[Rfam]
RNA sequence: GGCCUGUGAUGUUUGUGAUUGUCCGUACCAUCUGAGAGUUUUACUUCUCCUUGAUGAUUUAUCACCUCUAUGGUCUGAGGCUU
Numbered sequence: 001g002g003c004c005u006g007u008g009a010u011g012u013u014u015g016u017g018a019u020u021g022u023c024c025g026u027a028c029c030a031u032c033u034g035a036g037a038g039u040u041u042u043a044c045u046u047c048u049c050c051u052u053g054a055u056g057a058u059u060u061a062u063c064a065c066c067u068c069u070a071u072g073g074u075c076u077g078a079g080g081c082u083u
Base pairs, nucleotide, nucleotide: 001082002081003080004079
The record is an 83-nucleotide sequence from Microthlaspi erraticum, which matches "small nucleolar RNA snoR117" in Rfam. The family's consensus secondary structure was predicted with RNAalifold. A reference for the family is Chen and Wu (2009), "Mining small RNA sequencing data: a new approach to identify small nucleolar RNAs in Arabidopsis", Nucleic Acids Res. By type it is a C/D-box small nucleolar RNA. The organism belongs to Microthlaspi, within Eukaryota.